[Rfam]
RNA sequence: UGCCUUUUGUGUUGCCCGCUAUUCUUUUACAUAGAUGAGUGAGGUGUCAAAAAAGGCAUAAAAUAACUUGAGCUGUUUCAUGCGUCUUCUUGCUGUUGUGCUUAAAGAUUUGAUUCAGCUGAGACAAUU
Numbered sequence: 001u002g003c004c005u006u007u008u009g010u011g012u013u014g015c016c017c018g019c020u021a022u023u024c025u026u027u028u029a030c031a032u033a034g035a036u037g038a039g040u041g042a043g044g045u046g047u048c049a050a051a052a053a054a055g056g057c058a059u060a061a062a063a064u065a066a067c068u069u070g071a072g073c074u075g076u077u078u079c080a081u082g083c084g085u086c087u088u089c090u091u092g093c094u095g096u097u098g099u100g101c102u103u104a105a106a107g108a109u110u111u112g113a114u115u116c117a118g119c120u121g122a123g124a125c126a127a128u129u
Base pairs, nucleotide, nucleotide: 002057003056004055005054006053007052010049011048013046014045015044016043017041018040019039020038023035024034069122071120072119073118074117075116083112084111087107088106092101

Shown here is a 129-nucleotide sequence from Chiloscyllium punctatum, a member of the family "Small nucleolar RNA SNORA13". The family's consensus secondary structure was predicted with CMfinder. It is annotated as an H/ACA-box small nucleolar RNA. Rfam links the family to the GO terms RNA processing and nucleolus. ACA13 is a member of the H/ACA class of snoRNA that guide the sites of modification of uridines to pseudouridines. The source organism's lineage runs through Eukaryota, Opisthokonta, Gnathostomata, Galeomorphii and Chiloscyllium.